[Rfam]
RNA sequence: UGAUACCAAGGGUCAAAAGGUCAUAUUUUUCAUGCUUGCAUGAAAAAAUAUGACUUUGGGACCCGCAAAACAUGAGAAAGGAGCCCGACAGGGCGGAUUUCGAAUGUUUUAGGAUUGCGGGAGCACGAAGUGCGAAGCGAUCCGUAGGUAUCA
Numbered sequence: 001u002g003a004u005a006c007c008a009a010g011g012g013u014c015a016a017a018a019g020g021u022c023a024u025a026u027u028u029u030u031c032a033u034g035c036u037u038g039c040a041u042g043a044a045a046a047a048a049u050a051u052g053a054c055u056u057u058g059g060g061a062c063c064c065g066c067a068a069a070a071c072a073u074g075a076g077a078a079a080g081g082a083g084c085c086c087g088a089c090a091g092g093g094c095g096g097a098u099u100u101c102g103a104a105u106g107u108u109u110u111a112g113g114a115u116u117g118c119g120g121g122a123g124c125a126c127g128a129a130g131u132g133c134g135a136a137g138c139g140a141u142c143c144g145u146a147g148g149u150a151u152c153a
Stems, first nucleotide, its partner, number of pairs: 001153007011063004017057013030043005067110001069108005076101004083094004112143007123133004

About this RNA:
Rfam assigns this 153-nucleotide RNA from Anaerobium acetethylicum to the family "Clostridiales-1 RNA". NCBI's taxonomy places the organism under Bacteria, Clostridia, Lachnospirales, Lachnospiraceae, Anaerobium.